[Rfam]
RNA: drum RNA
RNA sequence: AAGCGUUGAAGUAGGAGGGUGCGCCGGUCGGCAUCGUCUUAUGGAGCUUUCAGGAGGGGUUGUGCAGCGAAACCUCAAACCGGCGUAGGCUUUGAGUAGCCGAAAGAAAAUGCACCAG
Numbered sequence: 001a002a003g004c005g006u007u008g009a010a011g012u013a014g015g016a017g018g019g020u021g022c023g024c025c026g027g028u029c030g031g032c033a034u035c036g037u038c039u040u041a042u043g044g045a046g047c048u049u050u051c052a053g054g055a056g057g058g059g060u061u062g063u064g065c066a067g068c069g070a071a072a073c074c075u076c077a078a079a080c081c082g083g084c085g086u087a088g089g090c091u092u093u094g095a096g097u098a099g100c101c102g103a104a105a106g107a108a109a110a111u112g113c114a115c116c117a118g
Stems, first nucleotide, its partner, number of pairs: 001049004011042006018035005024083004064113003088101004